[Rfam]
Description:
Rfam assigns this 58-nucleotide sequence from Caenorhabditis briggsae to the family "mir-7583 microRNA precursor family".

RNA sequence: AGUUCCAAAUAUCGUGAUAGCAUUACGAGCUUUCCUGCUAUCCGACAUCUGUGAUGGA
Numbered sequence: 001a002g003u004u005c006c007a008a009a010u011a012u013c014g015u016g017a018u019a020g021c022a023u024u025a026c027g028a029g030c031u032u033u034c035c036u037g038c039u040a041u042c043c044g045a046c047a048u049c050u051g052u053g054a055u056g057g058a
Base pairs, nucleotide, nucleotide: 002055003054004053006051007050009048010047012045013044014043016042017041018040019039020038021037022036025033
The base pairs follow the family's consensus structure, which was predicted with RNAalifold. The match comes from Rfam's covariance-model search (49 bits).